The record is a 74-nucleotide RNA sequence from Dechloromonas sp. TW-R-39-2, which matches "SAH (S-adenosyl-L-homocysteine) riboswitch aptamer" in Rfam. A search with the family's covariance model found it, with a score of 53 bits. Lineage of the source: Bacteria > Pseudomonadati > Pseudomonadota > Rhodocyclales > Dechloromonas.

[Rfam]
RNA sequence: CCUACCGAGGGGCGCUGCAGGAGCGCGGUGACACCAUCGCUCCCAGGCUCGGUUUAAAACGGCGCUCACUGAUC
Numbered sequence: 001c002c003u004a005c006c007g008a009g010g011g012g013c014g015c016u017g018c019a020g021g022a023g024c025g026c027g028g029u030g031a032c033a034c035c036a037u038c039g040c041u042c043c044c045a046g047g048c049u050c051g052g053u054u055u056a057a058a059a060c061g062g063c064g065c066u067c068a069c070u071g072a073u074c
Stems, first nucleotide, its partner, number of pairs: 004053005021042005
Pairs were carried over by alignment from the consensus structure, which is taken from published work.